Source information:
Shown here is a 74-nucleotide RNA from Danio rerio, a member of the family "mir-17 microRNA precursor family". Its family is annotated with RISC complex and miRNA-mediated post-transcriptional gene silencing in the Gene Ontology. The base pairs follow the family's consensus structure, which was predicted with RNAalifold. A reference for the family is Lagos-Quintana et al. (2001), "Identification of novel genes coding for small expressed RNAs", Science.
RNA sequence: GUGUGUGUUAAAAGUGCUGUUUGUGCAGGUAGUGUGUUUCCUCUACUGUAGGAGCAGCACUUCACAACACACAC
Numbered sequence: 001g002u003g004u005g006u007g008u009u010a011a012a013a014g015u016g017c018u019g020u021u022u023g024u025g026c027a028g029g030u031a032g033u034g035u036g037u038u039u040c041c042u043c044u045a046c047u048g049u050a051g052g053a054g055c056a057g058c059a060c061u062u063c064a065c066a067a068c069a070c071a072c073a074c
Stems, first nucleotide, its partner, number of pairs: 003072004008067002012062011024050003028047005